This 186-nucleotide RNA from Apilactobacillus ozensis belongs to the Rfam family "Listeria sRNA rli28". Pairs were carried over by alignment from the consensus structure, which was predicted with RNAalifold. The match comes from Rfam's covariance-model search (54 bits). By type it is a small RNA.

RNA sequence: AAUUUAAUGUAUAAUAACGUCUAGUAGAGAAGUUAAUGGACGGUGGCUGUCUUUUUCCCGAAGAGGUGAUUUCUAUGGAAAUAUGGAAUAAUCUACAGAAAGGUUUCACAGCCAAUGAGUGUUUUUCAAGCACUUAGUUUGAUGUUUAUGUUUGGUAUGUUUAUUUUAGCAUUGCUAACAUACAUC
Numbered sequence: 001a002a003u004u005u006a007a008u009g010u011a012u013a014a015u016a017a018c019g020u021c022u023a024g025u026a027g028a029g030a031a032g033u034u035a036a037u038g039g040a041c042g043g044u045g046g047c048u049g050u051c052u053u054u055u056u057c058c059c060g061a062a063g064a065g066g067u068g069a070u071u072u073c074u075a076u077g078g079a080a081a082u083a084u085g086g087a088a089u090a091a092u093c094u095a096c097a098g099a100a101a102g103g104u105u106u107c108a109c110a111g112c113c114a115a116u117g118a119g120u121g122u123u124u125u126u127c128a129a130g131c132a133c134u135u136a137g138u139u140u141g142a143u144g145u146u147u148a149u150g151u152u153u154g155g156u157a158u159g160u161u162u163a164u165u166u167u168a169g170c171a172u173u174g175c176u177a178a179c180a181u182a183c184a185u186c
Stems, first nucleotide, its partner, number of pairs: 043158003047154001063096001064094004069089001071087002119135001121133002124130001163185002166182001169179001